[Rfam]
Rfam assigns this 72-nucleotide sequence from Saccharomyces cerevisiae to the family "tRNA". Pairs were carried over by alignment from the consensus structure, which is taken from published work. It is one of the family's seed sequences. NCBI's taxonomy places the organism under Eukaryota, Fungi, Saccharomycotina, Saccharomycetales, Saccharomyces.
RNA sequence: GUUCCGUUGGCGUAAUGGUAACGCGUCUCCCUCCUAAGGAGAAGACUGCGGGUUCGAGUCCCGUACGGAACG
Numbered sequence: 001g002u003u004c005c006g007u008u009g010g011c012g013u014a015a016u017g018g019u020a021a022c023g024c025g026u027c028u029c030c031c032u033c034c035u036a037a038g039g040a041g042a043a044g045a046c047u048g049c050g051g052g053u054u055c056g057a058g059u060c061c062c063g064u065a066c067g068g069a070a071c072g
Stems, first nucleotide, its partner, number of pairs: 001071007010024004026042005048064005